[Rfam]
Shown here is a 156-nucleotide RNA from Streptomyces paludis, a member of the family "Streptomyces sRNA scr5239". Pairs were carried over by alignment from the consensus structure, which is taken from published work. The literature on the family includes a 2012 paper in Microbiology by Vockenhuber and Suess, "Streptomyces coelicolor sRNA scr5239 inhibits agarase expression by direct base pairing to the dagA coding region". Its family is annotated with mRNA binding and negative regulation of translation in the Gene Ontology. The source organism's lineage runs through Bacteria, Actinomycetota, Actinomycetes, Streptomycetaceae and Streptomyces.
RNA sequence: CCCCCAUCCUCCCCGCACAGGAGGGUGGACCGAGGCCCCGGACGCUCUCUGCCCUGACUGCGACGGGACCUCGCCCACGGCCGCGCGGGACCGCACACCCGCCGGCCGAGCAUUCGGGGCUGCGGUGCCGGCGGGCUGAGGGUCCCGACCCGGCGC
Numbered sequence: 001c002c003c004c005c006a007u008c009c010u011c012c013c014c015g016c017a018c019a020g021g022a023g024g025g026u027g028g029a030c031c032g033a034g035g036c037c038c039c040g041g042a043c044g045c046u047c048u049c050u051g052c053c054c055u056g057a058c059u060g061c062g063a064c065g066g067g068a069c070c071u072c073g074c075c076c077a078c079g080g081c082c083g084c085g086c087g088g089g090a091c092c093g094c095a096c097a098c099c100c101g102c103c104g105g106c107c108g109a110g111c112a113u114u115c116g117g118g119g120c121u122g123c124g125g126u127g128c129c130g131g132c133g134g135g136c137u138g139a140g141g142g143u144c145c146c147g148a149c150c151c152g153g154c155g156c
Base pairs, nucleotide, nucleotide: 004028005027006026008024009023010022011021012020032072033071034070035069038066039065040064044061045060046057047056078108079107080106081105082104083103087100088099089098111127112126113125114124117121130150131149132147133146134145135144